[Rfam]
RNA sequence: GCGAGGUGAUGAUGCAUGUAUCAAUCCUCUGAUGUCACAAAGAGAUGACUCCUCAUACAUCCUUACAGGCUCUGAUCGC
Numbered sequence: 001g002c003g004a005g006g007u008g009a010u011g012a013u014g015c016a017u018g019u020a021u022c023a024a025u026c027c028u029c030u031g032a033u034g035u036c037a038c039a040a041a042g043a044g045a046u047g048a049c050u051c052c053u054c055a056u057a058c059a060u061c062c063u064u065a066c067a068g069g070c071u072c073u074g075a076u077c078g079c
Base pairs, nucleotide, nucleotide: 001079002078003077004076